The family of this 263-nucleotide RNA from Lachnospiraceae bacterium A4 is "Bacterial large signal recognition particle RNA". The match comes from Rfam's covariance-model search (164 bits). About the family: The signal recognition particle (SRP) is a universally conserved ribonucleoprotein involved in the co-translational targeting of proteins to membranes. Clan: SRP clan. It is annotated as a non-coding RNA gene. Its family is annotated with SRP-dependent cotranslational protein targeting to membrane, signal sequence recognition and signal recognition particle, plasma membrane targeting in the Gene Ontology.
RNA sequence: UCGUGCAGCCGGGGCGUUAGCGGUGCCUUGUACCCACAAUCCGCUAUAGUGGGGGUGAUAAACGACGGAGGGUCUGCGUUUGUGUAGCUGCCCUUUAUAAGUGGCGUUGAUGUUUGGGUCUCACGCAAUGUGUGCCGUUGAACCGUGUCAGGACAGGAAUGUAGCAGCACUAAAGCGGAUUUCAUAUGUGCCGUGAGGGUGCCUGGCGGAGUUAACUGUAGAGGUAACGUACAUGGGCAUAGGAUUCGAAGCCGUUUGCACGA
Numbered sequence: 001u002c003g004u005g006c007a008g009c010c011g012g013g014g015c016g017u018u019a020g021c022g023g024u025g026c027c028u029u030g031u032a033c034c035c036a037c038a039a040u041c042c043g044c045u046a047u048a049g050u051g052g053g054g055g056u057g058a059u060a061a062a063c064g065a066c067g068g069a070g071g072g073u074c075u076g077c078g079u080u081u082g083u084g085u086a087g088c089u090g091c092c093c094u095u096u097a098u099a100a101g102u103g104g105c106g107u108u109g110a111u112g113u114u115u116g117g118g119u120c121u122c123a124c125g126c127a128a129u130g131u132g133u134g135c136c137g138u139u140g141a142a143c144c145g146u147g148u149c150a151g152g153a154c155a156g157g158a159a160u161g162u163a164g165c166a167g168c169a170c171u172a173a174a175g176c177g178g179a180u181u182u183c184a185u186a187u188g189u190g191c192c193g194u195g196a197g198g199g200u201g202c203c204u205g206g207c208g209g210a211g212u213u214a215a216c217u218g219u220a221g222a223g224g225u226a227a228c229g230u231a232c233a234u235g236g237g238c239a240u241a242g243g244a245u246u247c248g249a250a251g252c253c254g255u256u257u258g259c260a261c262g263a
Stems, first nucleotide, its partner, number of pairs: 001263007008056003011029008033053005061256004066251001070247005076240001078238008089226002093223006101216002103213003111208003115205005120197006126188002129186004135178005145170004153162003